RNA sequence: CUUCACCGAGCCGAGCCAGAGCGGCUGGUCCCGAUCACGGCCGUAGGUGGCCAGCAGCGCCUGCGCCUC
Numbered sequence: 001c002u003u004c005a006c007c008g009a010g011c012c013g014a015g016c017c018a019g020a021g022c023g024g025c026u027g028g029u030c031c032c033g034a035u036c037a038c039g040g041c042c043g044u045a046g047g048u049g050g051c052c053a054g055c056a057g058c059g060c061c062u063g064c065g066c067c068u069c
Stems, first nucleotide, its partner, number of pairs: 014026004031065001032059002039052001041050003
This 69-nucleotide sequence from Kibdelosporangium aridum belongs to the Rfam family "ASpks TB sRNA".